[Rfam]
Annotation
ZMP/ZTP riboswitch aptamer (pfl RNA motif): a 78-nucleotide RNA from Brachybacterium alimentarium. Pairs were carried over by alignment from the consensus structure, which is taken from published work. Taxonomically the source falls in Brachybacterium (Bacteria, Bacillati, Micrococcales, Dermabacteraceae).
Nucleotides: 078
Stems, first nucleotide, its partner, number of pairs: 003047002010044003015039002017066004024035004055073005
Number, partner (000 for none) and nucleotide at each position: 001000a002000u003047g004046g005000c006000c007000c008000c009000a010044c011043a012042c013000g014000a015039c016038u017066g018065g019064c020063g021000a022000a023000g024035g025034u026033g027032g028000g029000c030000g031000a032027c033026c034025a035024c036000c037000g038016g039015g040000g041000a042012g043011u044010g045000a046004c047003c048000g049000a050000u051000a052000c053000g054000a055073g056072c057071a058070u059069c060000g061000a062000c063020c064019g065018c066017c067000u068000g069059g070058g071057u072056g073055c074000u075000c076000g077000a078000c